[Rfam]
RNA sequence: CUCUGGAGAGAGUCUGCAUGGCGGACCACCAAAGGGGAAACCGGUCAGAAAGCCGUAGAGAGAUGGCUUGUGCCGGGUAGCUCUCAGGUAAAAAGGACAGAG
Numbered sequence: 001c002u003c004u005g006g007a008g009a010g011a012g013u014c015u016g017c018a019u020g021g022c023g024g025a026c027c028a029c030c031a032a033a034g035g036g037g038a039a040a041c042c043g044g045u046c047a048g049a050a051a052g053c054c055g056u057a058g059a060g061a062g063a064u065g066g067c068u069u070g071u072g073c074c075g076g077g078u079a080g081c082u083c084u085c086a087g088g089u090a091a092a093a094a095g096g097a098c099a100g101a102g
Base pairs, nucleotide, nucleotide: 001102002101003100004099005098012026013025014024015023028089029088030087032084035083036082037081041076042075043074044073045072
RNA: Glycine riboswitch aptamer